A member of the RNA family "Actino-pnp RNA" from Kocuria palustris, 75 nucleotides long. The base pairs follow the family's consensus structure, which is taken from published work. NCBI's taxonomy places the organism under Bacteria, Actinomycetota, Actinomycetes, Micrococcales, Kocuria palustris. It is annotated as a cis-regulatory element.

[Rfam]
RNA sequence: CCCGGUCCUCGACAGUGGUCCACGGAAUCCCCGCAGCCUCGCUGCCGCGGCCGUGGACUUCGAUCGAAGACCGUG
Numbered sequence: 001c002c003c004g005g006u007c008c009u010c011g012a013c014a015g016u017g018g019u020c021c022a023c024g025g026a027a028u029c030c031c032c033g034c035a036g037c038c039u040c041g042c043u044g045c046c047g048c049g050g051c052c053g054u055g056g057a058c059u060u061c062g063a064u065c066g067a068a069g070a071c072c073g074u075g
Stems, first nucleotide, its partner, number of pairs: 001075001003073005009067004017059009029047001